[Rfam]
RNA: Bacteroidete tryptophan peptide leader RNA
RNA sequence: AUAUAUUUGACAAUAAGAAUAUGAAAACAAUAAAUACAAAUACUUGGUGGUGGAAAACCUUACGUCAAACUUCGUGAGCUAAAGCACUAUUGGUAUAAAUAUACAAAAGGCUUGUC
Numbered sequence: 001a002u003a004u005a006u007u008u009g010a011c012a013a014u015a016a017g018a019a020u021a022u023g024a025a026a027a028c029a030a031u032a033a034a035u036a037c038a039a040a041u042a043c044u045u046g047g048u049g050g051u052g053g054a055a056a057a058c059c060u061u062a063c064g065u066c067a068a069a070c071u072u073c074g075u076g077a078g079c080u081a082a083a084g085c086a087c088u089a090u091u092g093g094u095a096u097a098a099a100u101a102u103a104c105a106a107a108a109g110g111c112u113u114g115u116c
Base pairs, nucleotide, nucleotide: 036102038100041097042096045093046091047090049088050087051086052085057080059078060077061076062072064070